[Rfam]
RNA sequence: AAGACUUAUACUUUCAGGGUUUCAUUCUCUAUAGUUUGUGAACUUGAGAAAUGUGUUUCUAAAGUGUAUGGGUACUCGGCUGCCCAACGAUAAGAGGUGGUGAUACUCCUUCUUGAACAUGAAGAAAGUAGAAGACUUGUUUCAUCAUAUCUCUCUACGUAACUGAUGACUGUUCACGUGUUUCUUUUUAGAGACAGUGAAGUGAAGGAGUAUGAUCUGUCGUGGU
Numbered sequence: 001a002a003g004a005c006u007u008a009u010a011c012u013u014u015c016a017g018g019g020u021u022u023c024a025u026u027c028u029c030u031a032u033a034g035u036u037u038g039u040g041a042a043c044u045u046g047a048g049a050a051a052u053g054u055g056u057u058u059c060u061a062a063a064g065u066g067u068a069u070g071g072g073u074a075c076u077c078g079g080c081u082g083c084c085c086a087a088c089g090a091u092a093a094g095a096g097g098u099g100g101u102g103a104u105a106c107u108c109c110u111u112c113u114u115g116a117a118c119a120u121g122a123a124g125a126a127a128g129u130a131g132a133a134g135a136c137u138u139g140u141u142u143c144a145u146c147a148u149a150u151c152u153c154u155c156u157a158c159g160u161a162a163c164u165g166a167u168g169a170c171u172g173u174u175c176a177c178g179u180g181u182u183u184c185u186u187u188u189u190a191g192a193g194a195c196a197g198u199g200a201a202g203u204g205a206a207g208g209a210g211u212a213u214g215a216u217c218u219g220u221c222g223u224g225g226u
Stems, first nucleotide, its partner, number of pairs: 001045003007038002010035003016030004059066001084225002087223002103213010114202001117173003128160002131155002134152001135150001138147002179196007